The family of this 96-nucleotide RNA sequence from Caenorhabditis briggsae is "mir-77 microRNA precursor family". Rfam 15.1 lists 8 matches to the family in 6 species. The literature on the family includes a 2001 paper in Science by Lau et al., "An abundant class of tiny RNAs with probable regulatory roles in Caenorhabditis elegans".
[Rfam]
RNA sequence: GAGCUGUGAAUUUGGAUAGCUGUGCUCUGAGGAAAUAACAAUAGUCACACCCCAUGUCAUUUCAUCAGGCCAUAGCUGUCCAAAUUUCUCGGUUCG
Dot-bracket structure: ........((((((((((((((((.(((((.(((((......................))))).))))).))))))))))))))))..........

NCBI's taxonomy places the organism under Eukaryota, Eumetazoa, Nematoda, Rhabditoidea, Caenorhabditis.
Pairs were carried over by alignment from the consensus structure, which was predicted with RNAalifold.
Rfam links the family to the GO terms miRNA-mediated post-transcriptional gene silencing and RISC complex.